This 96-nucleotide RNA from Staphylococcus argenteus belongs to the Rfam family "Staphylococcus sRNA sau-5971". The literature on the family includes a 2010 paper in J Mol Med (Berl) by Abu-Qatouseh et al., "Identification of differentially expressed small non-protein-coding RNAs in Staphylococcus aureus displaying both the normal and the small-colony variant phenotype". By type it is a small RNA. Rfam's curators put it in the seed alignment.
RNA sequence: GAGGAAAGAGACUUAUAGGUCUCGCGAGUUAUUUUAAUUCGUAUGCAAGAAAAAGAAGAGCUAUGCAUUUUAUUUAAAAUGCGUAGUUCUUUUUUA
Numbered sequence: 001g002a003g004g005a006a007a008g009a010g011a012c013u014u015a016u017a018g019g020u021c022u023c024g025c026g027a028g029u030u031a032u033u034u035u036a037a038u039u040c041g042u043a044u045g046c047a048a049g050a051a052a053a054a055g056a057a058g059a060g061c062u063a064u065g066c067a068u069u070u071u072a073u074u075u076a077a078a079a080u081g082c083g084u085a086g087u088u089c090u091u092u093u094u095u096a
Stems, first nucleotide, its partner, number of pairs: 008023006024042008052095020